[Rfam]
RNA sequence: AGCUUCUAUCAACAUUAUUCAGGGCCUUACCCAAGACCCGGUGUACAAUUUUUGGAAACCCUGUCCGGUUUUAUAGGGCAGGGUU
Numbered sequence: 001a002g003c004u005u006c007u008a009u010c011a012a013c014a015u016u017a018u019u020c021a022g023g024g025c026c027u028u029a030c031c032c033a034a035g036a037c038c039c040g041g042u043g044u045a046c047a048a049u050u051u052u053u054g055g056a057a058a059c060c061c062u063g064u065c066c067g068g069u070u071u072u073a074u075a076g077g078g079c080a081g082g083g084u085u
Stems, first nucleotide, its partner, number of pairs: 022039003026035003058084009
RNA: SmY spliceosomal RNA